[Rfam]
RNA sequence: CAACAUGACAGAGGCGCGGCCUUCAUCAGUACCUUCGGAAAGCGACGGAAAGCGCGAAGCGAAAGGGAAUGCCGCCGAAGGGCCUUGCGGGUUUCCGACCGUUCGGCCCUGGGGUGCAGGAGAACAUCCUGCGCACUGUCGCAGAGCGGAGUGCUGUCAUGGUU
Numbered sequence: 001c002a003a004c005a006u007g008a009c010a011g012a013g014g015c016g017c018g019g020c021c022u023u024c025a026u027c028a029g030u031a032c033c034u035u036c037g038g039a040a041a042g043c044g045a046c047g048g049a050a051a052g053c054g055c056g057a058a059g060c061g062a063a064a065g066g067g068a069a070u071g072c073c074g075c076c077g078a079a080g081g082g083c084c085u086u087g088c089g090g091g092u093u094u095c096c097g098a099c100c101g102u103u104c105g106g107c108c109c110u111g112g113g114g115u116g117c118a119g120g121a122g123a124a125c126a127u128c129c130u131g132c133g134c135a136c137u138g139u140c141g142c143a144g145a146g147c148g149g150a151g152u153g154c155u156g157u158c159a160u161g162g163u164u
Base pairs, nucleotide, nucleotide: 006159007158008157009156010155011154016075017074018073019072020071022069023068024067033059034058035057036056037055079110080109081108082107083106084105087102088101089100090099111137112136114134115133116132117131118130119129120128121127139149140148141147142146
Background:
The record is a 164-nucleotide sequence from Coriobacteriaceae bacterium CHKCI002, which matches "Lysine riboswitch aptamer" in Rfam. Lineage of the source: Bacteria > Bacillati > Coriobacteriia > Coriobacteriales > Coriobacteriaceae. Pairs were carried over by alignment from the consensus structure, which is taken from published work.